The record is a 172-nucleotide RNA sequence from Arthrobacter sp. SRS-W-1-2016, which matches "M-box riboswitch aptamer (ykoK leader)" in Rfam. Pairs were carried over by alignment from the consensus structure. M-box riboswitch, also know as ykoK leader is described as a metaloregulatory RNA that sense divalent metals and function as a genetic control element of genes related to divalent metal transport in bacteria.

[Rfam]
RNA sequence: GGUGCCGUUCGUUAGCUGAGGCUCCUUCGCGGAAACAUGCCAGCGACCCCCAACGUCGAGAGACGCCCCGGGUCAGGACAGGCCGCCCCGGCAUUAAGGGGUGGCCCCGAUUGGCUCCCGGAACGCCGGGUUCACGCCGCGAAGUGCCAAAGGUCUUACGAGGAGGGGCAAC
Numbered sequence: 001g002g003u004g005c006c007g008u009u010c011g012u013u014a015g016c017u018g019a020g021g022c023u024c025c026u027u028c029g030c031g032g033a034a035a036c037a038u039g040c041c042a043g044c045g046a047c048c049c050c051c052a053a054c055g056u057c058g059a060g061a062g063a064c065g066c067c068c069c070g071g072g073u074c075a076g077g078a079c080a081g082g083c084c085g086c087c088c089c090g091g092c093a094u095u096a097a098g099g100g101g102u103g104g105c106c107c108c109g110a111u112u113g114g115c116u117c118c119c120g121g122a123a124c125g126c127c128g129g130g131u132u133c134a135c136g137c138c139g140c141g142a143a144g145u146g147c148c149a150a151a152g153g154u155c156u157u158a159c160g161a162g163g164a165g166g167g168g169c170a171a172c
Stems, first nucleotide, its partner, number of pairs: 005168002008165003011159002013097001015154003020148003025144008039115005045074005054065004081106004087100003117130003